[Rfam]
RNA sequence: UUCUGAGCGCGUGUUUGAUCACGACAUUGGAAAACGACACGCCUUUGAGGCGGGCAGUGCGGAUAUAUUGCGCCGCCAUCACCUCGGCCAUGCUGGCCCGCGUCAUCCGCGCGAUAUAGCCCAUGCCAUACAGCGCGAUGGUCAGGACAGGCAGGAAGAAAUUUUCGAAAUUGGCGUGAUCC
Numbered sequence: 001u002u003c004u005g006a007g008c009g010c011g012u013g014u015u016u017g018a019u020c021a022c023g024a025c026a027u028u029g030g031a032a033a034a035c036g037a038c039a040c041g042c043c044u045u046u047g048a049g050g051c052g053g054g055c056a057g058u059g060c061g062g063a064u065a066u067a068u069u070g071c072g073c074c075g076c077c078a079u080c081a082c083c084u085c086g087g088c089c090a091u092g093c094u095g096g097c098c099c100g101c102g103u104c105a106u107c108c109g110c111g112c113g114a115u116a117u118a119g120c121c122c123a124u125g126c127c128a129u130a131c132a133g134c135g136c137g138a139u140g141g142u143c144a145g146g147a148c149a150g151g152c153a154g155g156a157a158g159a160a161a162u163u164u165u166c167g168a169a170a171u172u173g174g175c176g177u178g179a180u181c182c
Base pairs, nucleotide, nucleotide: 004141006139008137009136010135011134012133015130016128017127020125021124028123029122030121038113040111041110042109046105047104048103050101051100052099053098054097055075057073058072059071060070061069062068082096083095145182146181147180148178149177151175152174154165155164156163157162

Ruegeria cis52 sRNA: a 182-nucleotide RNA from Pseudodonghicola xiamenensis. Taxonomically the source falls in Pseudodonghicola (Bacteria, Alphaproteobacteria, Rhodobacterales, Paracoccaceae). Rfam links the family to the GO term regulation of gene expression. The match comes from Rfam's covariance-model search (140 bits). A reference for the family is Rivers et al. (2016), "Experimental Identification of Small Non-Coding RNAs in the Model Marine Bacterium Ruegeria pomeroyi DSS-3", Front Microbiol.